Rfam assigns this 432-nucleotide part of an RNA from uncultured marine alveolate to the family "Eukaryotic large subunit ribosomal RNA". It is one of the family's seed sequences.
RNA sequence: GGUAGUAGCAACUAUUCAACUGCGAAUGUUGAAGACUGAAGUGGAGAAGGUUUCCAUGUGAACAGGAUUUGUACAUGGGUUAGCCGGCCCUAAGGGACUCCGGAGGACGGGUCGAGUGCAGCUUUGCUGCAUUGCCCGAAAGGUAAGGUGGUUAAUAUUCCUCCGCCCGACAGUGGAUAGUAUGUGGCAACACAACAGAACUCGGGUUCGCGUGCGGGUGCUCCGGGAAGUGUUUUCUUUUCUUCUCAACAAUCAUAGGCCCUGGAAUCAGCUUGUCAGGAGGUAGGGCUGUCAGAUUGGUGGAGUGCCUCGUCAUUCGAGCCACCUGGUGAGCUCUCGCACGCCCUUGAAACCCCGGGGGAAAGUUUCAUUCGCACUCACGUCCGUAUCCAUAACCGCAUCAGGUCUCCAAGGUUAGCAGCCUCUGGUCUC
Number, nucleotide and partner (000 for none) at each position: 001g000002g000003u000004a000005g000006u000007a000008g000009c000010a000011a000012c000013u000014a000015u033016u032017c031018a030019a029020c028021u000022g000023c000024g000025a000026a000027u000028g020029u019030u018031g017032a016033a015034g430035a429036c428037u427038g000039a000040a000041g000042u000043g410044g409045a408046g407047a000048a000049g390050g389051u000052u000053u000054c078055c077056a076057u075058g074059u073060g000061a000062a000063c071064a070065g000066g000067a000068u000069u000070u064071g063072u000073a059074c058075a057076u056077g055078g054079g000080u000081u000082a000083g000084c000085c386086g385087g384088c000089c143090c142091u000092a000093a000094g137095g136096g113097a112098c111099u000100c110101c109102g108103g000104a000105g000106g000107a000108c102109g101110g100111g098112u097113c096114g000115a000116g000117u000118g130119c129120a128121g000122c000123u000124u000125u000126g000127c000128u120129g119130c118131a000132u000133u000134g000135c000136c095137c094138g000139a000140a000141a000142g090143g089144u000145a000146a000147g164148g163149u000150g161151g160152u000153u000154a000155a000156u000157a000158u000159u000160c151161c150162u000163c148164c147165g000166c000167c382168c000169g000170a000171c000172a378173g377174u376175g375176g000177a372178u000179a000180g000181u000182a000183u194184g193185u192186g191187g000188c000189a000190a000191c186192a185193c184194a183195a000196c000197a000198g000199a000200a000201c359202u358203c357204g356205g355206g354207u000208u000209c000210g344211c343212g342213u341214g000215c339216g338217g337218g336219u000220g334221c333222u000223c329224c328225g327226g246227g245228a244229a243230g242231u000232g000233u000234u000235u000236u000237c000238u000239u000240u000241u000242c230243u229244u228245c227246u226247c000248a000249a000250c299251a298252a297253u296254c295255a000256u000257a000258g000259g289260c288261c287262c286263u285264g284265g000266a000267a000268u280269c279270a000271g277272c000273u000274u000275g000276u000277c271278a000279g269280g268281a000282g000283g000284u264285a263286g262287g261288g260289c259290u000291g000292u000293c000294a000295g254296a253297u252298u251299g250300g000301u000302g000303g000304a000305g000306u324307g323308c000309c321310u320311c319312g318313u000314c000315a000316u000317u000318c312319g311320a310321g309322c000323c307324a306325c000326c000327u225328g224329g223330u000331g000332a000333g221334c220335u000336c218337u217338c216339g215340c000341a213342c212343g211344c210345c000346c000347u000348u000349g000350a000351a000352a000353c000354c206355c205356c204357g203358g202359g201360g000361g000362a000363a000364a000365g000366u000367u000368u000369c000370a000371u000372u177373c000374g000375c175376a174377c173378u172379c000380a000381c000382g167383u000384c087385c086386g085387u000388a000389u050390c049391c000392a000393u000394a000395a000396c405397c404398g000399c000400a000401u000402c000403a000404g397405g396406u000407c046408u045409c044410c043411a000412a424413g423414g422415u421416u000417a000418g000419c000420a000421g415422c414423c413424u412425c000426u000427g037428g036429u035430c034431u000432c000